[Rfam]
RNA sequence: GCGCUUCCCAUUGGGGAGUAGCCGCCCUGCCGCGCGACACCGCGUUGUGCGACAGGGGCGUACGUCAACAGACUUGACCGCUUGCGGUUAUGGCGUGCGCAGCUUCGGAACGGUGCAAUGCCUGUUCCAGGGCCUGGCGAGACCGAUGACGUCGUUUUUCGGCUGGGCCGGGGAAAACGCAC
Numbered sequence: 001g002c003g004c005u006u007c008c009c010a011u012u013g014g015g016g017a018g019u020a021g022c023c024g025c026c027c028u029g030c031c032g033c034g035c036g037a038c039a040c041c042g043c044g045u046u047g048u049g050c051g052a053c054a055g056g057g058g059c060g061u062a063c064g065u066c067a068a069c070a071g072a073c074u075u076g077a078c079c080g081c082u083u084g085c086g087g088u089u090a091u092g093g094c095g096u097g098c099g100c101a102g103c104u105u106c107g108g109a110a111c112g113g114u115g116c117a118a119u120g121c122c123u124g125u126u127c128c129a130g131g132g133c134c135u136g137g138c139g140a141g142a143c144c145g146a147u148g149a150c151g152u153c154g155u156u157u158u159u160c161g162g163c164u165g166g167g168c169c170g171g172g173g174a175a176a177a178c179g180c181a182c
Base pairs, nucleotide, nucleotide: 026056027055028054058100059099060098061097062096063095064094065093066092067091075090076089077088078087079086104181106179107178

Shown here is a 182-nucleotide sequence from Cupriavidus sp. HPC(L), a member of the family "Manganese Mn2+ riboswitch aptamer (yybP-ykoY)". Gene Ontology term of the family: manganese ion binding. Rfam's curators write: This RNA was originally discovered in E. coli during a large scale screen and was named SraF. The family was later found to exist upstream of related families of protein genes in many bacteria, including the the yybP and ykoK genes in B. subtilis. The specific functions of these proteins are unknown, but this structured RNA element may be involved in their genetic regulation as a riboswitch.